A member of the RNA family "MIR480 microRNA precursor family" from Populus tomentosa, 142 nucleotides long. The family's consensus secondary structure was predicted with WAR.
[Rfam]
Nucleotides: 142
Base pairs, nucleotide, nucleotide: 006142007141009138012135014132015131019128020127024123026121028118030116031115032114
Number, partner (000 for none) and nucleotide at each position: 001000u002000a003000a004000u005000u006142u007141g008000u009138u010000u011000g012135u013000g014132a015131a016000a017000a018000a019128a020127u021000c022000a023000c024123c025000a026121u027000u028118u029000a030116a031115c032114u033000a034000u035000a036000g037000c038000a039000a040000a041000u042000c043000a044000u045000c046000a047000u048000u049000u050000a051000a052000a053000u054000g055000u056000u057000c058000a059000a060000a061000a062000c063000u064000u065000u066000u067000g068000a069000u070000u071000u072000u073000c074000a075000c076000a077000a078000c079000u080000c081000c082000g083000a084000c085000u086000g087000c088000a089000u090000g091000a092000g093000c094000c095000a096000a097000g098000g099000a100000c101000c102000u103000a104000u105000c106000c107000c108000u109000a110000c111000c112000c113000a114032a115031g116030u117000a118028a119000u120000c121026g122000a123024g124000u125000c126000g127020a128019u129000u130000g131015u132014u133000u134000c135012a136000a137000c138009a139000u140000a141007u142006a
Gene Ontology terms of the family: RISC complex and miRNA-mediated post-transcriptional gene silencing. A reference for the family is Lu et al. (2005), "Novel and mechanical stress-responsive MicroRNAs in Populus trichocarpa that are absent from Arabidopsis", Plant Cell. Taxonomically the source falls in Populus (Eukaryota, Magnoliopsida, Mesangiospermae, rosids).